[Rfam]
RNA: Small Cajal body-specific RNA 7
Organism: Antrostomus carolinensis
RNA sequence: UGGAAAUGAUGAAAUAGAGAUAAUUGGAUGUAAUUUUGAAUGGAGUAUGUGUGAUAAAUGGAAUUUAAACCAAGUUAGACUGGGGGUGGGUUGUGGGGAAUGUGUGUGUGUGUGUGUGUAGAAAGGCUUUAAUGGGGGCACUGAUAAUGCAGUGCUGAUUCCGGAGUGCAUCUGAGGCAUGUUGUUCAGUUUCUGGGGUGUCACUUCACAACAUUGCCGAUGAUUAAAGCCCAAAACAAGCCCACCAAGACAAGCCUAGGCAUCCUAAAUCUCUAACAGGUUCAUUAAUAAAAGUGAUCCUGUGAUCUGAUCUGA
Numbered sequence: 001u002g003g004a005a006a007u008g009a010u011g012a013a014a015u016a017g018a019g020a021u022a023a024u025u026g027g028a029u030g031u032a033a034u035u036u037u038g039a040a041u042g043g044a045g046u047a048u049g050u051g052u053g054a055u056a057a058a059u060g061g062a063a064u065u066u067a068a069a070c071c072a073a074g075u076u077a078g079a080c081u082g083g084g085g086g087u088g089g090g091u092u093g094u095g096g097g098g099a100a101u102g103u104g105u106g107u108g109u110g111u112g113u114g115u116g117u118g119u120a121g122a123a124a125g126g127c128u129u130u131a132a133u134g135g136g137g138g139c140a141c142u143g144a145u146a147a148u149g150c151a152g153u154g155c156u157g158a159u160u161c162c163g164g165a166g167u168g169c170a171u172c173u174g175a176g177g178c179a180u181g182u183u184g185u186u187c188a189g190u191u192u193c194u195g196g197g198g199u200g201u202c203a204c205u206u207c208a209c210a211a212c213a214u215u216g217c218c219g220a221u222g223a224u225u226a227a228a229g230c231c232c233a234a235a236a237c238a239a240g241c242c243c244a245c246c247a248a249g250a251c252a253a254g255c256c257u258a259g260g261c262a263u264c265c266u267a268a269a270u271c272u273c274u275a276a277c278a279g280g281u282u283c284a285u286u287a288a289u290a291a292a293a294g295u296g297a298u299c300c301u302g303u304g305a306u307c308u309g310a311u312c313u314g315a
Stems, first nucleotide, its partner, number of pairs: 001314004180213006189204002193200001